[Rfam]
The record is a 133-nucleotide sequence from Erpetoichthys calabaricus, which matches "Small nucleolar RNA SNORA22" in Rfam. From the family's description: ACA22 is a member of the H/ACA class of snoRNA that guide the sites of modification of uridines to pseudouridines. Pairs were carried over by alignment from the consensus structure, which was predicted with RNAfold. By type it is an H/ACA-box small nucleolar RNA. The family has 31 seed sequences and 883 matches in Rfam 15.1.
RNA sequence: CUGCACAGUGAACACCCAGGUGUGCUUUGUAGCUCCCUUGGUUUUUAGUCUGUGCUAAAUUAAGUUCUGGUCUUUACCUCUGCAUUAGAAGAAAAUUACUUCUUUUUAAUGUAUUCAGUUGACCAGUACAAAU
Numbered sequence: 001c002u003g004c005a006c007a008g009u010g011a012a013c014a015c016c017c018a019g020g021u022g023u024g025c026u027u028u029g030u031a032g033c034u035c036c037c038u039u040g041g042u043u044u045u046u047a048g049u050c051u052g053u054g055c056u057a058a059a060u061u062a063a064g065u066u067c068u069g070g071u072c073u074u075u076a077c078c079u080c081u082g083c084a085u086u087a088g089a090a091g092a093a094a095a096u097u098a099c100u101u102c103u104u105u106u107u108a109a110u111g112u113a114u115u116c117a118g119u120u121g122a123c124c125a126g127u128a129c130a131a132a133u
Base pairs, nucleotide, nucleotide: 003055004054005053006052007051008050010049014045016041017040018039019038020037022035024033025032026031057073059071060070061069062068080118081117082116083111084110085109086108087106088105089104090103091102092101093100